c-di-GMP-I riboswitch aptamer: an 89-nucleotide RNA sequence from Firmicutes bacterium AF12-30.
RNA sequence: UUAUUCAUAGGGCAAACCUGUUGAAAGGCAGGGACGCAAAGCCAAAGGGUCUAAGGUCUUUUUAGAGAUUAUGACAGCCGGUUGCCACA
Numbered sequence: 001u002u003a004u005u006c007a008u009a010g011g012g013c014a015a016a017c018c019u020g021u022u023g024a025a026a027g028g029c030a031g032g033g034a035c036g037c038a039a040a041g042c043c044a045a046a047g048g049g050u051c052u053a054a055g056g057u058c059u060u061u062u063u064a065g066a067g068a069u070u071a072u073g074a075c076a077g078c079c080g081g082u083u084g085c086c087a088c089a
Base pairs, nucleotide, nucleotide: 012037013036017032018031019030020029021028022027040083041082042081043080047079048078049075050074051073056069057068058067059066
Source information
The family has 155 seed sequences and 5,092 matches in Rfam 15.1.